[Rfam]
RNA sequence: UAACCGCGAGACAAAGUGAGUGGGUCAGGGCCGAUCCUUAAGGCGAGGUCAGACCCAGGAAAGUCCCCGGGCCCAUAUCUGCAGAGAUGCAGGCUUGGUAACAAGUUAUCUUCGAGUGGAAGAGGUUCCUUUGCAUUGAACAAGGGGGGCUGAGACAAGUGUGGAGCCCUUUGACCUCUUCGGCCGAAGCAAAUUGGCCGAUGUACACGGUUAUUCACUUGGUCCCUCGUGGACUAACAGAACGGGGCUUACGAUCUCGUGGUU
Numbered sequence: 001u002a003a004c005c006g007c008g009a010g011a012c013a014a015a016g017u018g019a020g021u022g023g024g025u026c027a028g029g030g031c032c033g034a035u036c037c038u039u040a041a042g043g044c045g046a047g048g049u050c051a052g053a054c055c056c057a058g059g060a061a062a063g064u065c066c067c068c069g070g071g072c073c074c075a076u077a078u079c080u081g082c083a084g085a086g087a088u089g090c091a092g093g094c095u096u097g098g099u100a101a102c103a104a105g106u107u108a109u110c111u112u113c114g115a116g117u118g119g120a121a122g123a124g125g126u127u128c129c130u131u132u133g134c135a136u137u138g139a140a141c142a143a144g145g146g147g148g149g150c151u152g153a154g155a156c157a158a159g160u161g162u163g164g165a166g167c168c169c170u171u172u173g174a175c176c177u178c179u180u181c182g183g184c185c186g187a188a189g190c191a192a193a194u195u196g197g198c199c200g201a202u203g204u205a206c207a208c209g210g211u212u213a214u215u216c217a218c219u220u221g222g223u224c225c226c227u228c229g230u231g232g233a234c235u236a237a238c239a240g241a242a243c244g245g246g247g248c249u250u251a252c253g254a255u256c257u258c259g260u261g262g263u264u
Stems, first nucleotide, its partner, number of pairs: 002264010014220006024054003061250003065247004080091004092107006109191001111189001119181006137174001139172001147169004157162001222234004
The record is a 264-nucleotide RNA from Theobroma umbraticum, which matches "RNase MRP" in Rfam. Taxonomically the source falls in Theobroma (Eukaryota, Euphyllophyta, Spermatophyta, Malvales). Clan: RNaseP clan. From the family's description: RNase MRP is an enzymatically active ribonucleoprotein with two distinct roles in eukaryotes. In mitochondria it plays a direct role in the initiation of mitochondrial DNA replication. In the nucleus it is involved in precursor rRNA processing, where it cleaves the internal transcribed spacer 1 between 18S and 5.8S rRNAs. Despite distinct functions, RNase MRP has been shown to be evolutionarily related to RNase P. Like eukaryotic RNase P, RNase MRP is not catalytically active without associated protein subunits.